RNA: Betaproteobacteria toxic small RNA
Organism: Variovorax sp. JS1663
RNA sequence: UGUCUCCUCCACCCUCCCAAUUGGUGGAUUUAGCCCCGGAUCGCAAGGUCCGGGGCUUUUUUC
Numbered sequence: 001u002g003u004c005u006c007c008u009c010c011a012c013c014c015u016c017c018c019a020a021u022u023g024g025u026g027g028a029u030u031u032a033g034c035c036c037c038g039g040a041u042c043g044c045a046a047g048g049u050c051c052g053g054g055g056c057u058u059u060u061u062u063c
Stems, first nucleotide, its partner, number of pairs: 008028006033056008